[Rfam]
RNA sequence: GUGCCCCAGUCUCCGCCCACUCGGCCGCCACGUGGCAGCCAAGCGAGGGCCUUGGGGUAGCGC
Number, nucleotide and partner (000 for none) at each position: 001g061002u060003g000004c000005c057006c056007c055008a000009g000010u000011c000012u000013c000014c000015g050016c049017c048018c047019a000020c043021u042022c000023g040024g039025c038026c000027g000028c035029c034030a000031c000032g000033u000034g029035g028036c000037a000038g025039c024040c023041a000042a021043g020044c000045g000046a000047g018048g017049g016050c015051c000052u000053u000054g000055g007056g006057g005058u000059a000060g002061c001062g000063c000
Shown here is a 63-nucleotide sequence from Oryza nivara, a member of the family "MIR2907 microRNA precursor family". It scores 66 bits against the family's covariance model. The organism belongs to Oryza, within Eukaryota. The literature on the family includes a 2010 paper in Genomics by Jian et al., "Identification of novel stress-regulated microRNAs from Oryza sativa L".